[Rfam]
RNA sequence: CUGAGUCUGUGAUGAUGCGAAGUUAUCCCUGUCUGAAGGCGAGGAAGGCCUUCCGGUGUGGAGUCUGGGUGUCUGAGACUCGG
Numbered sequence: 001c002u003g004a005g006u007c008u009g010u011g012a013u014g015a016u017g018c019g020a021a022g023u024u025a026u027c028c029c030u031g032u033c034u035g036a037a038g039g040c041g042a043g044g045a046a047g048g049c050c051u052u053c054c055g056g057u058g059u060g061g062a063g064u065c066u067g068g069g070u071g072u073c074u075g076a077g078a079c080u081c082g083g
Base pairs, nucleotide, nucleotide: 001083002082003081004080005079006078007077
Small nucleolar RNA R38: an 83-nucleotide RNA from Phyllostomus discolor. The match comes from Rfam's covariance-model search (45 bits). Pairs were carried over by alignment from the consensus structure, which was predicted with PFOLD. It is annotated as a C/D-box small nucleolar RNA. A reference for the family is Bachellerie et al. (1995), "Antisense snoRNAs: a family of nucleolar RNAs with long complementarities to rRNA", Trends Biochem Sci. The family has 19 seed sequences and 2,295 matches in Rfam 15.1.